[Rfam]
Rfam assigns this 109-nucleotide sequence from Peptoclostridium litorale to the family "SAM riboswitch aptamer (S box leader)". Taxonomically the source falls in Peptoclostridium litorale (Bacteria, Bacillota, Peptoclostridiaceae, Peptoclostridium). A search with the family's covariance model found it, with a score of 90 bits. Its family is annotated with regulation of gene expression in the Gene Ontology.
RNA sequence: AACUUAUCAAGAGUGGCAGAGGGACUGGCCCUGUGAAGCCCGGCAACCGACACGACAUACUGUGUCAUGGUGCUAAAUCCAGCAGCUUUAAUCGGCUGAAAGAUGAGUA
Numbered sequence: 001a002a003c004u005u006a007u008c009a010a011g012a013g014u015g016g017c018a019g020a021g022g023g024a025c026u027g028g029c030c031c032u033g034u035g036a037a038g039c040c041c042g043g044c045a046a047c048c049g050a051c052a053c054g055a056c057a058u059a060c061u062g063u064g065u066c067a068u069g070g071u072g073c074u075a076a077a078u079c080c081a082g083c084a085g086c087u088u089u090a091a092u093c094g095g096c097u098g099a100a101a102g103a104u105g106a107g108u109a
Base pairs, nucleotide, nucleotide: 002108003107004106005105006104007103008102013041015040016039017038021031022030023029025082026081027080028079042074043073044072045071047070048069049066050065051064052063078101083098084097085096086095087094